[Rfam]
Nucleotides: 138
Base pairs, nucleotide, nucleotide: 008087009086010085011084012083013026014025015024016023017022027058028057029056030055031054032053034051035050036049037048038047059082060081061080062079063078064077065076106136107135108134109133111132112131113130114129115128117127118126
Number, partner (000 for none) and nucleotide at each position: 001000a002000a003000a004000a005000a006000g007000g008087g009086c010085u011084u012083c013026u014025a015024u016023c017022a018000u019000g020000u021000a022017u023016g024015a025014u026013a027058c028057g029056g030055c031054g032053u033000a034051g035050g036049u037048g038047a039000g040000c041000u042000u043000u044000g045000a046000c047038u048037c049036a050035c051034c052000c053032g054031c055030g056029c057028c058027g059082c060081g061080g062079a063078a064077u065076c066000g067000c068000c069000a070000u071000c072000a073000a074000g075000a076065g077064a078063u079062u080061u081060c082059g083012g084011a085010a086009g087008c088000a089000a090000a091000a092000u093000u094000u095000u096000u097000u098000a099000a100000a101000u102000a103000c104000u105000g106136a107135g108134g109133c110000u111132g112131c113130c114129g115128g116000c117127u118126g119000c120000c121000a122000u123000a124000a125000a126118c127117a128115c129114u130113g131112g132111c133109g134108c135107c136106u137000c138000g
Shown here is a 138-nucleotide RNA sequence from Menidia menidia, a member of the family "U11 spliceosomal RNA". The family's consensus secondary structure is taken from published work. The match comes from Rfam's covariance-model search (104 bits). Lineage of the source: Eukaryota > Euteleostomi > Actinopterygii > Teleostei > Menidia.